This 46-nucleotide RNA sequence from Odobenus rosmarus belongs to the Rfam family "Histone 3' UTR stem-loop".
About the family: The mRNAs of metazoan histone genes lack a poly-A tail. 3' end processing occurs at a site between a highly conserved stem-loop (modelled by this family) and a purine rich region around 20 nts downstream (the histone downstream element, or HDE). The stem-loop is bound by a 31 kDa stem-loop binding protein (SLBP - also termed the histone hairpin binding protein, or HBP). Together with U7 snRNA binding of the HDE, SLBP binding nucleate s the formation of the processing complex. The histone 3' UTR stem-loop is also involved in nucleocytoplasmic transport of the mRNA, and in stability regulation and translation efficiency in the cytoplasm.
The source organism's lineage runs through Eukaryota, Gnathostomata, Euteleostomi, Theria and Odobenus rosmarus.
The family's consensus secondary structure is taken from published work.
[Rfam]
RNA sequence: CAAAAGGCUCUUUUCAGAGCCACCCACUUAAUCAACAAAAGAGCUG
Number, nucleotide and partner (000 for none) at each position: 001c000002a000003a000004a000005a000006g021007g020008c019009u018010c017011u016012u000013u000014u000015c000016a011017g010018a009019g008020c007021c006022a000023c000024c000025c000026a000027c000028u000029u000030a000031a000032u000033c000034a000035a000036c000037a000038a000039a000040a000041g000042a000043g000044c000045u000046g000